[Rfam]
RNA: Lysine riboswitch aptamer
RNA sequence: ACCUGGGGUAGAGGUGCUGUAAUUAAUAGUAUUUAUUCUUAGCGGCCGCGCGAUGAGGAAUAAAGAAAGGAAUUAUAGCCGAAGAAGAAUAAUGUAGGAAGUUAUCUUCUGGCUUUGUAUAAAAUAUAUGCAAAGUUGUCACUAUAAUGGUGGAGAGCUACAGAGGUU
Numbered sequence: 001a002c003c004u005g006g007g008g009u010a011g012a013g014g015u016g017c018u019g020u021a022a023u024u025a026a027u028a029g030u031a032u033u034u035a036u037u038c039u040u041a042g043c044g045g046c047c048g049c050g051c052g053a054u055g056a057g058g059a060a061u062a063a064a065g066a067a068a069g070g071a072a073u074u075a076u077a078g079c080c081g082a083a084g085a086a087g088a089a090u091a092a093u094g095u096a097g098g099a100a101g102u103u104a105u106c107u108u109c110u111g112g113c114u115u116u117g118u119a120u121a122a123a124a125u126a127u128a129u130g131c132a133a134a135g136u137u138g139u140c141a142c143u144a145u146a147a148u149g150g151u152g153g154a155g156a157g158c159u160a161c162a163g164a165g166g167u168u
Base pairs, nucleotide, nucleotide: 008161009160010159011158016079017078018077019076020075021074022073023072024071032064033063034062035061036060037059038058039057083110084109085108086107087106089105090104091103092102093101111137112136113135114134115133116132117131118130119129120128121127139153140152141151142150143149144148